Overview:
The record is a 115-nucleotide sequence from Gulo gulo, which matches "Small nucleolar RNA SNORA32" in Rfam. About the family: ACA32 is a member of the H/ACA class of snoRNA that guide the sites of modification of uridines to pseudouridines. It is annotated as an H/ACA-box small nucleolar RNA. The source organism's lineage runs through Eukaryota, Chordata, Amniota, Guloninae and Gulo.
[Rfam]
RNA sequence: UAGUCAUUACCAAGGCUUUGAGAACGCAGCUUCUCAUUUGCUGUAGACACAACCAUAAAAACAUCUUCCCACUAGGUUUUCUACUUUGCUAGCAUUCAGCCUAUUGGGAACAUUU
Number, nucleotide and partner (000 for none) at each position: 001u000002a000003g053004u052005c000006a000007u049008u000009a000010c046011c000012a044013a000014g000015g000016c000017u000018u000019u000020g000021a000022g000023a000024a000025c000026g041027c040028a039029g038030c000031u000032u000033c000034u000035c000036a000037u000038u029039u028040g027041c026042u000043g000044u012045a000046g010047a000048c000049a007050c000051a000052a004053c003054c000055a000056u000057a000058a000059a000060a000061a000062c000063a000064u000065c000066u000067u000068c108069c107070c106071a105072c000073u000074a000075g101076g100077u099078u098079u000080u000081c000082u000083a000084c000085u000086u000087u094088g093089c000090u000091a000092g000093c088094a087095u000096u000097c000098a078099g077100c076101c075102u000103a000104u000105u071106g070107g069108g068109a000110a000111c000112a000113u000114u000115u000